Rfam assigns this 46-nucleotide RNA from Crotophaga sulcirostris to the family "Histone 3' UTR stem-loop". On this family, see Dominski and Marzluff, Gene 1999: "Formation of the 3' end of histone mRNA". The family's consensus secondary structure is taken from published work.

RNA sequence: CCAACGGCUCUUUUCAGAGCCACCCACAUUUUCCUAAAAAGAGCUG
Numbered sequence: 001c002c003a004a005c006g007g008c009u010c011u012u013u014u015c016a017g018a019g020c021c022a023c024c025c026a027c028a029u030u031u032u033c034c035u036a037a038a039a040a041g042a043g044c045u046g
Base pairs, nucleotide, nucleotide: 006021007020008019009018010017011016